The record is a 97-nucleotide sequence from Taxus chinensis, which matches "Small nucleolar RNA Z152/R70/R12/" in Rfam. A reference for the family is Barneche et al. (2001), "Identification of 66 box C/D snoRNAs in Arabidopsis thaliana: extensive gene duplications generated multiple isoforms predicting new ribosomal RNA 2'-O-methylation sites", J Mol Biol. It is annotated as a C/D-box small nucleolar RNA.
[Rfam]
RNA sequence: AACGCUGUGAUGAGCCUUGCCCUAAUGGGGUCUGGGCAGUGGCAGAGUUUUCUGCCGUGAGCCUUUGGAAAAACGACUUCUUCUUCCACUGAGCGUU
Numbered sequence: 001a002a003c004g005c006u007g008u009g010a011u012g013a014g015c016c017u018u019g020c021c022c023u024a025a026u027g028g029g030g031u032c033u034g035g036g037c038a039g040u041g042g043c044a045g046a047g048u049u050u051u052c053u054g055c056c057g058u059g060a061g062c063c064u065u066u067g068g069a070a071a072a073a074c075g076a077c078u079u080c081u082u083c084u085u086c087c088a089c090u091g092a093g094c095g096u097u
Base pairs, nucleotide, nucleotide: 001097002096003095004094005093